[Rfam]
RNA sequence: GAUCAGUGAUGAAAACAUCCAAAUCUGAGCAUAAGAAGACCUUCAAGUCUACCUGAUACAUGAUCUCUAGUUCUGAGA
Numbered sequence: 001g002a003u004c005a006g007u008g009a010u011g012a013a014a015a016c017a018u019c020c021a022a023a024u025c026u027g028a029g030c031a032u033a034a035g036a037a038g039a040c041c042u043u044c045a046a047g048u049c050u051a052c053c054u055g056a057u058a059c060a061u062g063a064u065c066u067c068u069a070g071u072u073c074u075g076a077g078a
Stems, first nucleotide, its partner, number of pairs: 029059001031057002037050004